[Rfam]
RNA sequence: GAGAAAUGAGGAUAUUAUAUAGUCUGGAAUUAUCGAUGAAGACUACAGAUCCAACUCUGAUCUCACAACUGGA
Dot-bracket structure: ((((........................................................)))).........
Small nucleolar RNA SNORD19: a 73-nucleotide RNA sequence from Atractosteus spatula. A search with the family's covariance model found it, with a score of 52 bits. The family is grouped with related families in Rfam's "SNORD19 clan". It is annotated as a C/D-box small nucleolar RNA. The organism belongs to Atractosteus, within Eukaryota. Pairs were carried over by alignment from the consensus structure. Rfam 15.1 lists 1,431 matches to the family in 609 species. A reference for the family is Huttenhofer et al. (2001), "RNomics: an experimental approach that identifies 201 candidates for novel, small, non-messenger RNAs in mouse", EMBO J.